[Rfam]
RNA sequence: CUGCUCAUGCACAGAACCAACUACCGAUAACUAACAGUGCAUGAAGGUUAGUUAUUCCA
Dot-bracket structure: ......[[[[[[...............((((((((.]]]]]]....)))))))).....